[Rfam]
RNA sequence: UGUCAGUUUCAGGGCGGGGUGAGAUUCCCCACUGGCGGUGACGGGACCUAUGUCCCCCAGUCCGCAAGCUGCAUUGCAGCAGACCUGGUGUAAAUCCGGGACCAACGGUACAGUCCGGAUGGAAGAAACGGAGC
Numbered sequence: 001u002g003u004c005a006g007u008u009u010c011a012g013g014g015c016g017g018g019g020u021g022a023g024a025u026u027c028c029c030c031a032c033u034g035g036c037g038g039u040g041a042c043g044g045g046a047c048c049u050a051u052g053u054c055c056c057c058c059a060g061u062c063c064g065c066a067a068g069c070u071g072c073a074u075u076g077c078a079g080c081a082g083a084c085c086u087g088g089u090g091u092a093a094a095u096c097c098g099g100g101a102c103c104a105a106c107g108g109u110a111c112a113g114u115c116c117g118g119a120u121g122g123a124a125g126a127a128a129c130g131g132a133g134c
Stems, first nucleotide, its partner, number of pairs: 003132002006129005017029003031114002033104002035065004060102002068080003084100005106117003
A member of the RNA family "FMN riboswitch aptamer (RFN element)" from Coriobacteriaceae bacterium BV3Ac1, 134 nucleotides long. NCBI's taxonomy places the organism under Bacteria, Actinomycetota, Coriobacteriia, Coriobacteriales, Coriobacteriaceae. A search with the family's covariance model found it, with a score of 107 bits.